[Rfam]
RNA sequence: UCGAGACUGCGUGCCCGGACGCCACAUACGACCGAUAAACUGGCAGUGGUCCGGCCGAGCGCAGCUCUCGGCCGUUCCGCUAAAUGAUCAGCCAGCAGCCGCUGCAACCCCAGGGAG
Numbered sequence: 001u002c003g004a005g006a007c008u009g010c011g012u013g014c015c016c017g018g019a020c021g022c023c024a025c026a027u028a029c030g031a032c033c034g035a036u037a038a039a040c041u042g043g044c045a046g047u048g049g050u051c052c053g054g055c056c057g058a059g060c061g062c063a064g065c066u067c068u069c070g071g072c073c074g075u076u077c078c079g080c081u082a083a084a085u086g087a088u089c090a091g092c093c094a095g096c097a098g099c100c101g102c103u104g105c106a107a108c109c110c111c112a113g114g115g116a117g
Stems, first nucleotide, its partner, number of pairs: 048078002052074002055071005093104004
RNA: Streptomyces-metK RNA
Organism: Streptomyces sp. NRRL F-4489